[Rfam]
RNA sequence: GGCCUACCUCUUUGGGGCAAUCAAUCACAGGGCUCUGCUAUCGAUUGCCCCAAAGAGGUAGGCC
Dot-bracket structure: ((((((((((((((((((((((.((..(((....)))..)).))))))))))))))))))))))